Shown here is a 293-nucleotide RNA sequence from Rosellinia necatrix, a member of the family "Group I catalytic intron".
The base pairs follow the family's consensus structure, which is taken from published work.
Gene Ontology term of the family: Group I intron splicing.

RNA sequence: CUAGUCAGGUGGUAAUAAUCUGCUGUAUUAAAUAGUGAGGUUAUUCCUGGCGACAUCCUCAAAUUGCGGGGAAGCCCUACAACAAAAGCAAUGACUACUAAGCGCGCCUUGAAAAAGAGCGCGUGGCGGAGCGUAACGGCUCCGGUACAGUAAGAACGUGAUUGCCUGGGGUCAUCCGCAGCCAAGCUCCUUAUAGGGAUAUAUGAGAGAAGGUUCAGAGACUUGACGGGGAUGGGUGAACUCGCAACCAGGUUCGCUUAAGAUAAAGUCCAUUAAAGGCACGAAAGUGUCCU
Numbered sequence: 001c002u003a004g005u006c007a008g009g010u011g012g013u014a015a016u017a018a019u020c021u022g023c024u025g026u027a028u029u030a031a032a033u034a035g036u037g038a039g040g041u042u043a044u045u046c047c048u049g050g051c052g053a054c055a056u057c058c059u060c061a062a063a064u065u066g067c068g069g070g071g072a073a074g075c076c077c078u079a080c081a082a083c084a085a086a087a088g089c090a091a092u093g094a095c096u097a098c099u100a101a102g103c104g105c106g107c108c109u110u111g112a113a114a115a116a117g118a119g120c121g122c123g124u125g126g127c128g129g130a131g132c133g134u135a136a137c138g139g140c141u142c143c144g145g146u147a148c149a150g151u152a153a154g155a156a157c158g159u160g161a162u163u164g165c166c167u168g169g170g171g172u173c174a175u176c177c178g179c180a181g182c183c184a185a186g187c188u189c190c191u192u193a194u195a196g197g198g199a200u201a202u203a204u205g206a207g208a209g210a211a212g213g214u215u216c217a218g219a220g221a222c223u224u225g226a227c228g229g230g231g232a233u234g235g236g237u238g239a240a241c242u243c244g245c246a247a248c249c250a251g252g253u254u255c256g257c258u259u260a261a262g263a264u265a266a267a268g269u270c271c272a273u274u275a276a277a278g279g280c281a282c283g284a285a286a287g288u289g290u291c292c293u
Base pairs, nucleotide, nucleotide: 001012002011003010020025054234055233056232057231058230060228065180066179067178068177069176070175075171076170077169078168079167181214182213188207192203193202194201195200218271220270221269222268223267224266236257237256238255239254240253241252242251244249278291279290280289281288282287